This 96-nucleotide sequence from Streptomyces brasiliensis belongs to the Rfam family "Group II catalytic intron D1-D4-1".

RNA sequence: CGGGCAGCGCCGGAAGGUGCUGUCUGACCGGGCAGAGGUCAGCAGAGGUCGUAGUACCAGCCGGGAUGAGUCGCGGGGCGGCGGGCUGGGAAGGGC
Numbered sequence: 001c002g003g004g005c006a007g008c009g010c011c012g013g014a015a016g017g018u019g020c021u022g023u024c025u026g027a028c029c030g031g032g033c034a035g036a037g038g039u040c041a042g043c044a045g046a047g048g049u050c051g052u053a054g055u056a057c058c059a060g061c062c063g064g065g066a067u068g069a070g071u072c073g074c075g076g077g078g079c080g081g082c083g084g085g086c087u088g089g090g091a092a093g094g095g096c
Stems, first nucleotide, its partner, number of pairs: 001026002004023008039046002048096003057089006

It scores 54 bits against the family's covariance model. The base pairs follow the family's consensus structure. Group II introns are found in rRNA, tRNA and mRNA of organelles in fungi, plants and protists, and also in mRNA in bacteria.